The record is a 116-nucleotide RNA sequence, which matches "ALIL pseudoknot" in Rfam. The base pairs follow the family's consensus structure, which is taken from published work. The family's RNA type in Rfam is cis-regulatory element. It scores 96 bits against the family's covariance model.
[Rfam]
RNA sequence: GGCUUGUCUAUCGCGGCGGAGCUCGACCGCCCGUCGAGGUGAUGUGCGCCUUCGUGGACAAGCACCGCGAUGAACACGGGGUCGAGCCGAUCUGCAAGGCACUGCAGAUCGCCCCG
Numbered sequence: 001g002g003c004u005u006g007u008c009u010a011u012c013g014c015g016g017c018g019g020a021g022c023u024c025g026a027c028c029g030c031c032c033g034u035c036g037a038g039g040u041g042a043u044g045u046g047c048g049c050c051u052u053c054g055u056g057g058a059c060a061a062g063c064a065c066c067g068c069g070a071u072g073a074a075c076a077c078g079g080g081g082u083c084g085a086g087c088c089g090a091u092c093u094g095c096a097a098g099g100c101a102c103u104g105c106a107g108a109u110c111g112c113c114c115c116g
Base pairs, nucleotide, nucleotide: 015031016030017029018028019027077116078115079114080113081112088111089110091108092107093106094105095104096103